Shown here is a 68-nucleotide RNA sequence from Cudoniella acicularis, a member of the family "bZIP non canonical Hac1/Xbp1 intron". The organism belongs to Cudoniella, within Eukaryota.

RNA sequence: AGUUCUUCCGAUAUGACACAACAUCCUGCCGCGAUGUUGUGCGACCUGCAGUGUCAGUCGGAAAAACA
Numbered sequence: 001a002g003u004u005c006u007u008c009c010g011a012u013a014u015g016a017c018a019c020a021a022c023a024u025c026c027u028g029c030c031g032c033g034a035u036g037u038u039g040u041g042c043g044a045c046c047u048g049c050a051g052u053g054u055c056a057g058u059c060g061g062a063a064a065a066a067c068a
Base pairs, nucleotide, nucleotide: 002067003066004065006063007062009060010059011058012057020038021037022036023035024034025033043055044054045053

Rfam classes the family as a small RNA. Pairs were carried over by alignment from the consensus structure, which was predicted with RNAfold. Rfam describes the family as follows. bZIP intron RNA is a non-canonical intron that was first reported in HAC1 gene in yeast and XBP1 gene in Metazoa.